This 174-nucleotide RNA sequence from Gilliamella sp. Occ3-1 belongs to the Rfam family "Lysine riboswitch aptamer". The match comes from Rfam's covariance-model search (81 bits). Rfam describes the family as follows. Riboswitches are metabolite binding domains within certain messenger RNAs that serve as precision sensors for their corresponding targets. The base pairs follow the family's consensus structure, which is taken from published work.
RNA sequence: GCAAAACGAAGAGGUGCAUUACUCAGGUAAGUCAUUUUAAGGACUGGAACCACUAAUAAAUGAUCGAGGGGACGUAAUGCCGAGGUUUGAUUACCCAUCCAGAAGUAAUUAAAUCGACUGCAAGGGCUGAAUCCCUUGGGUUGUCACCUUAACAGGUGGAGCGCUUCAUGGUUU
Number, nucleotide and partner (000 for none) at each position: 001g000002c000003a000004a000005a000006a169007c000008g167009a166010a165011g164012a000013g000014g000015u000016g080017c079018a078019u077020u076021a075022c074023u000024c000025a000026g000027g000028u000029a000030a000031g064032u063033c062034a061035u060036u059037u058038u000039a000040a000041g000042g000043a000044c000045u000046g000047g000048a000049a000050c000051c000052a000053c000054u000055a000056a000057u000058a037059a036060a035061u034062g033063a032064u031065c000066g000067a000068g000069g000070g000071g000072a000073c000074g022075u021076a020077a019078u018079g017080c016081c000082g000083a000084g115085g114086u113087u112088u111089g110090a109091u108092u107093a106094c105095c000096c000097a000098u000099c000100c000101a000102g000103a000104a000105g094106u093107a092108a091109u090110u089111a088112a087113a086114u085115c084116g142117a141118c140119u139120g000121c138122a137123a136124g135125g134126g133127c000128u000129g000130a000131a000132u000133c126134c125135c124136u123137u122138g121139g119140g118141u117142u116143g000144u159145c158146a157147c156148c155149u154150u000151a000152a000153c000154a149155g148156g147157u146158g145159g144160a000161g000162c000163g000164c011165u010166u009167c008168a000169u006170g000171g000172u000173u000174u000